[Rfam]
RNA sequence: CAAUGGCUGGAGCUCUUUAAACCUGGUACUGACUGCGCCAGGUUUAAAGGGCUCCAGCCAUUUA
Numbered sequence: 001c002a003a004u005g006g007c008u009g010g011a012g013c014u015c016u017u018u019a020a021a022c023c024u025g026g027u028a029c030u031g032a033c034u035g036c037g038c039c040a041g042g043u044u045u046a047a048a049g050g051g052c053u054c055c056a057g058c059c060a061u062u063u064a
Stems, first nucleotide, its partner, number of pairs: 002063002005059006012052008022042006029035001

mir-130 microRNA precursor family: a 64-nucleotide RNA from Phrynocephalus forsythii. The match comes from Rfam's covariance-model search (44 bits). The organism belongs to Phrynocephalus, within Eukaryota. Rfam 15.1 lists 2,580 matches to the family in 658 species. Gene Ontology terms of the family: RISC complex and miRNA-mediated post-transcriptional gene silencing. The literature on the family includes a 2002 paper in Curr Biol by Lagos-Quintana et al., "Identification of tissue-specific microRNAs from mouse".